[Rfam]
RNA: Bacterial RNase P class A
RNA sequence: CGAGUCGGCUGGGCGGCCGCGUCGAUGCCAUUCCGGUAUCGCCGAGGAACGUCCGGACUCCGCAGAGCAGGGUGGUUGUUAACGGCAACCCGGGGCGACCCGCGGGAAAGUGCCACAGAAAACAAACCGCCGGCACGGGCCCAGGCCCGCCAGCCGGUAAGGGUGAAACGGUGAGGUAAGAGCUCACCAGCACCCCGGGUGACCGGGGUGGCUAGGUAAACCCCACCCGGAGCAAGGCCAAGAAAGGCCGCCGCCGCAAGGCAGCGGCCGGCGCAGGCGUUCGAGGGCUGCUCGCCCGAGCCUGCGGGUAGGCCGCACGAGCCUGCCGGCAACGGCAGGCCAAGAUGGAUGGCCGCCACCGGGGCUCAGGCCCCGGCCACAGAAUCCGGCGUACAGGCCGACUCGUCCG
Numbered sequence: 001c002g003a004g005u006c007g008g009c010u011g012g013g014c015g016g017c018c019g020c021g022u023c024g025a026u027g028c029c030a031u032u033c034c035g036g037u038a039u040c041g042c043c044g045a046g047g048a049a050c051g052u053c054c055g056g057a058c059u060c061c062g063c064a065g066a067g068c069a070g071g072g073u074g075g076u077u078g079u080u081a082a083c084g085g086c087a088a089c090c091c092g093g094g095g096c097g098a099c100c101c102g103c104g105g106g107a108a109a110g111u112g113c114c115a116c117a118g119a120a121a122a123c124a125a126a127c128c129g130c131c132g133g134c135a136c137g138g139g140c141c142c143a144g145g146c147c148c149g150c151c152a153g154c155c156g157g158u159a160a161g162g163g164u165g166a167a168a169c170g171g172u173g174a175g176g177u178a179a180g181a182g183c184u185c186a187c188c189a190g191c192a193c194c195c196c197g198g199g200u201g202a203c204c205g206g207g208g209u210g211g212c213u214a215g216g217u218a219a220a221c222c223c224c225a226c227c228c229g230g231a232g233c234a235a236g237g238c239c240a241a242g243a244a245a246g247g248c249c250g251c252c253g254c255c256g257c258a259a260g261g262c263a264g265c266g267g268c269c270g271g272c273g274c275a276g277g278c279g280u281u282c283g284a285g286g287g288c289u290g291c292u293c294g295c296c297c298g299a300g301c302c303u304g305c306g307g308g309u310a311g312g313c314c315g316c317a318c319g320a321g322c323c324u325g326c327c328g329g330c331a332a333c334g335g336c337a338g339g340c341c342a343a344g345a346u347g348g349a350u351g352g353c354c355g356c357c358a359c360c361g362g363g364g365c366u367c368a369g370g371c372c373c374c375g376g377c378c379a380c381a382g383a384a385u386c387c388g389g390c391g392u393a394c395a396g397g398c399c400g401a402c403u404c405g406u407c408c409g
Stems, first nucleotide, its partner, number of pairs: 001405010011394001012357007020044002023041006049392003053389005058232004065293004070228005075089005090104001091102004105223002110221002112217003127162002129158006137150001170188006190212001191210008236314004273305006285297004321340008